[Rfam]
RNA: Selenocysteine transfer RNA
Organism: Actinocatenispora sera
RNA sequence: GGUCCCGUGGGCGUUCCCGGUGGAGCGGCUCGCCUGCAAAGCGAGUGGACACGUCUCGGUUCGACUCCGAGCGGGACC
Numbered sequence: 001g002g003u004c005c006c007g008u009g010g011g012c013g014u015u016c017c018c019g020g021u022g023g024a025g026c027g028g029c030u031c032g033c034c035u036g037c038a039a040a041g042c043g044a045g046u047g048g049a050c051a052c053g054u055c056u057c058g059g060u061u062c063g064a065c066u067c068c069g070a071g072c073g074g075g076a077c078c
Base pairs, nucleotide, nucleotide: 001078002077003076004075005074006073007072008071012027013026014025015024016023017022028046029045030044031043032042033041048055049054056070057069058068059067
Dot-bracket structure: ((((((((...((((((....))))))((((((.......)))))).((....))((((.......))))))))))))